[Rfam]
RNA sequence: UAUAGAGCGGGAAGCGCAGAUCCGUCGACAGGUAUUCGGUCACCCAGGUGGUCGACGGGGAGCCAGUGGUGAGACCGGCCCGUCCUAGA
Numbered sequence: 001u002a003u004a005g006a007g008c009g010g011g012a013a014g015c016g017c018a019g020a021u022c023c024g025u026c027g028a029c030a031g032g033u034a035u036u037c038g039g040u041c042a043c044c045c046a047g048g049u050g051g052u053c054g055a056c057g058g059g060g061a062g063c064c065a066g067u068g069g070u071g072a073g074a075c076c077g078g079c080c081c082g083u084c085c086u087a088g089a
Base pairs, nucleotide, nucleotide: 001089003087004086005085007083008082009081010080011079014063015062022058023057024056025055026054027053028052029051038076039075040072041071042070043069044068
Shown here is an 89-nucleotide RNA sequence, a member of the family "c-di-GMP-II-GAG riboswitch aptamer". Gene Ontology terms of the family: cyclic-di-GMP binding and regulation of gene expression. Clan: c-di-GMP_II riboswitch clan. The sequence is in the family's curated seed alignment.